[Rfam]
This 81-nucleotide sequence from Anopheles darlingi belongs to the Rfam family "mir-2796 microRNA precursor family".
RNA sequence: GUACGGUGGCAGGGGUUUCUUUCGGCCUCCAGCAGCAUUCAGACACGGUUGUAGGCCGGCGGAAACUACUUGCUUCCGUCG
Numbered sequence: 001g002u003a004c005g006g007u008g009g010c011a012g013g014g015g016u017u018u019c020u021u022u023c024g025g026c027c028u029c030c031a032g033c034a035g036c037a038u039u040c041a042g043a044c045a046c047g048g049u050u051g052u053a054g055g056c057c058g059g060c061g062g063a064a065a066c067u068a069c070u071u072g073c074u075u076c077c078g079u080c081g
Stems, first nucleotide, its partner, number of pairs: 005077002008074001010072004014067007022059007030051003
Description: Gene Ontology terms of the family: miRNA-mediated post-transcriptional gene silencing and RISC complex.